Nucleotides: 097
Base pairs, nucleotide, nucleotide: 006085007084008083009082010081011047012046013045014044016041017034018033019032020031053078054077055076056075059072060071061070062069
Number, partner (000 for none) and nucleotide at each position: 001000a002000a003000c004000a005000g006085c007084a008083g009082c010081u011047a012046g013045g014044g015000g016041u017034g018033c019032c020031g021000a022000g023000c024000a025000a026000u027000u028000g029000c030000c031020c032019g033018g034017c035000u036000g037000a038000g039000a040000g041016a042000g043000u044014c045013c046012c047011u048000c049000u050000g051000a052000a053078c054077c055076u056075g057000a058000u059072c060071c061070g062069g063000u064000u065000g066000g067000u068000a069062c070061c071060g072059g073000c074000g075056u076055a077054g078053g079000g080000a081010a082009g083008c084007u085006g086000a087000a088000a089000a090000g091000c092000a093000c094000a095000g096000g097000c